The family of this 383-nucleotide RNA sequence from Fuerstiella sp. is "Bacterial RNase P class A". The family's RNA type in Rfam is ribozyme. The organism belongs to Fuerstiella, within Bacteria.
RNA sequence: GCAGAGGGACAGGCGUUCGCUGAGUCGCAGGAUUCAGAGGAAAGUCCGGGCUCCAUAGGACACGAUGGUGGGUAACGCCCACCGUCCGCGAGGAUCGGGCAAGUGCAACAGAAAGCAAACCGCCGAUCGGCAGGACCGAAAGGUUCUGCAGGAGGUAAGGGUGAAACGGUGCGGUAAGAGCGCACCAGCGGUUCGGGUGACCGAGCCGGCUGGGUAAACCCCAUUGGGAGCAAGGCCAAGCAGAAGGGACGGCAGUCUUCGGACUGCCACGAAUCUGUCCGAUUCGUCAUACCUUCGGGUCGGCUGCUUGAGGUGUCGAGUAAUCGACAUCCCAGAGAAAUGAACGCCCGCGACAGAACCCGGCUUAUCGUCCCUCUGCCGGC
Numbered sequence: 001g002c003a004g005a006g007g008g009a010c011a012g013g014c015g016u017u018c019g020c021u022g023a024g025u026c027g028c029a030g031g032a033u034u035c036a037g038a039g040g041a042a043a044g045u046c047c048g049g050g051c052u053c054c055a056u057a058g059g060a061c062a063c064g065a066u067g068g069u070g071g072g073u074a075a076c077g078c079c080c081a082c083c084g085u086c087c088g089c090g091a092g093g094a095u096c097g098g099g100c101a102a103g104u105g106c107a108a109c110a111g112a113a114a115g116c117a118a119a120c121c122g123c124c125g126a127u128c129g130g131c132a133g134g135a136c137c138g139a140a141a142g143g144u145u146c147u148g149c150a151g152g153a154g155g156u157a158a159g160g161g162u163g164a165a166a167c168g169g170u171g172c173g174g175u176a177a178g179a180g181c182g183c184a185c186c187a188g189c190g191g192u193u194c195g196g197g198u199g200a201c202c203g204a205g206c207c208g209g210c211u212g213g214g215u216a217a218a219c220c221c222c223a224u225u226g227g228g229a230g231c232a233a234g235g236c237c238a239a240g241c242a243g244a245a246g247g248g249a250c251g252g253c254a255g256u257c258u259u260c261g262g263a264c265u266g267c268c269a270c271g272a273a274u275c276u277g278u279c280c281g282a283u284u285c286g287u288c289a290u291a292c293c294u295u296c297g298g299g300u301c302g303g304c305u306g307c308u309u310g311a312g313g314u315g316u317c318g319a320g321u322a323a324u325c326g327a328c329a330u331c332c333c334a335g336a337g338a339a340a341u342g343a344a345c346g347c348c349c350g351c352g353a354c355a356g357a358a359c360c361c362g363g364c365u366u367a368u369c370g371u372c373c374c375u376c377u378g379c380c381g382g383c
Stems, first nucleotide, its partner, number of pairs: 001379010011368001012348007020037007042366003046363005051230004058280004063226005068082005083097001084095004098221002103219002105215002120160002122156003127152002130149008168186006188210001189208008234305004243296005271285005312331008